[Rfam]
RNA sequence: ACUUAAAACGUCAUUGAGUGCAGCGUUGAUGAAUCUCAGCUGUAAAUCACGGUGUUUCGUCAACCCUGCACUCAAUUAUGUUUUGA
Numbered sequence: 001a002c003u004u005a006a007a008a009c010g011u012c013a014u015u016g017a018g019u020g021c022a023g024c025g026u027u028g029a030u031g032a033a034u035c036u037c038a039g040c041u042g043u044a045a046a047u048c049a050c051g052g053u054g055u056u057u058c059g060u061c062a063a064c065c066c067u068g069c070a071c072u073c074a075a076u077u078a079u080g081u082u083u084u085g086a
Stems, first nucleotide, its partner, number of pairs: 006083006013076011025064004030059003

Rfam assigns this 86-nucleotide RNA from Lactuca sativa to the family "MIR397 microRNA precursor family". Pairs were carried over by alignment from the consensus structure, which was predicted with WAR. The family has 7 seed sequences and 496 matches in Rfam 15.1. The organism belongs to Lactuca, within Eukaryota.